Nucleotides: 086
Stems, first nucleotide, its partner, number of pairs: 009023004053086003056078002059075006
Number, partner (000 for none) and nucleotide at each position: 001000g002000g003000u004000u005000u006000c007000c008000c009023u010022u011021g012020g013000u014000g015000c016000a017000a018000a019000u020012u021011c022010a023009a024000u025000c026000a027000c028000c029000u030000g031000a032000a033000u034000u035000u036000a037000a038000g039000a040000u041000g042000a043000g044000a045000a046000a047000c048000a049000a050000u051000u052000c053086u054085c055084c056078a057077u058000u059075g060074g061073u062072a063071g064070c065000a066000a067000c068000u069000g070064g071063u072062u073061a074060u075059c076000c077057a078056u079000u080000a081000a082000g083000c084055g085054g086053a